[Rfam]
RNA: Group II catalytic intron D1-D4-1
Organism: Desulforamulus ferrireducens
RNA sequence: CAACCCGCAUCGUGAGGUGUCGGCUGAGUCGGCAGAAGUCAGCAGAGGCCAUAGUACUCCUAACGAGGAAGGGC
Numbered sequence: 001c002a003a004c005c006c007g008c009a010u011c012g013u014g015a016g017g018u019g020u021c022g023g024c025u026g027a028g029u030c031g032g033c034a035g036a037a038g039u040c041a042g043c044a045g046a047g048g049c050c051a052u053a054g055u056a057c058u059c060c061u062a063a064c065g066a067g068g069a070a071g072g073g074c
Stems, first nucleotide, its partner, number of pairs: 001026002004023002007020005039046002048074003057067003